[Rfam]
RNA sequence: UCAGAUCUUUUUGCGGUCUGGGCUUGCUGUUCCUAGAUAGUGUAGUCAGGAAGCCCUUACCCCAAAAAGUAUUUG
Number, nucleotide and partner (000 for none) at each position: 001u000002c000003a000004g000005a000006u000007c069008u068009u067010u066011u065012u064013g063014c000015g061016g060017u059018c000019u000020g056021g055022g054023c053024u000025u051026g000027c049028u048029g000030u000031u000032c000033c000034u000035a000036g000037a000038u000039a000040g000041u000042g000043u000044a000045g000046u000047c000048a028049g027050g000051a025052a000053g023054c022055c021056c020057u000058u000059a017060c016061c015062c000063c013064a012065a011066a010067a009068a008069g007070u000071a000072u000073u000074u000075g000
A member of the RNA family "mir-129 microRNA precursor family" from Polypterus senegalus, 75 nucleotides long. The family's consensus secondary structure was predicted with RNAalifold. The source organism's lineage runs through Eukaryota, Chordata, Euteleostomi, Polypteriformes and Polypterus. For this family Rfam cites "New microRNAs from mouse and human" (Lagos-Quintana et al., RNA, 2003). The family has 56 seed sequences and 1,242 matches in Rfam 15.1.